[Rfam]
RNA sequence: AAAACACUAACCGUUUUGUUUUCACAAAACGGCUCUAUUGUCUGCGCUUUUUCAGGCUGGCGCCUUACAAAAGUGCAUAAAUUAAACAGCCUCAAAAGUUCAUACUUUCUUCGGCUGUUUAAUUUUAUG
Numbered sequence: 001a002a003a004a005c006a007c008u009a010a011c012c013g014u015u016u017u018g019u020u021u022u023c024a025c026a027a028a029a030c031g032g033c034u035c036u037a038u039u040g041u042c043u044g045c046g047c048u049u050u051u052u053c054a055g056g057c058u059g060g061c062g063c064c065u066u067a068c069a070a071a072a073g074u075g076c077a078u079a080a081a082u083u084a085a086a087c088a089g090c091c092u093c094a095a096a097a098g099u100u101c102a103u104a105c106u107u108u109c110u111u112c113g114g115c116u117g118u119u120u121a122a123u124u125u126u127a128u129g
Stems, first nucleotide, its partner, number of pairs: 013030007044076008081123011095108005
Dot-bracket structure: ............(((((((....))))))).............((((((((.................))))))))....(((((((((((...(((((....)))))....)))))))))))......

Annotation:
Shown here is a 129-nucleotide sequence from Treponema sp. Marseille-Q3903, a member of the family "TD-1 RNA". Its Rfam clan is "TD (Treponema denticola) motifs". Rfam 15.1 lists 147 matches to the family in 9 species. The literature on the family includes a 2007 paper in Nucleic Acids Res by Weinberg et al., "Identification of 22 candidate structured RNAs in bacteria using the CMfinder comparative genomics pipeline".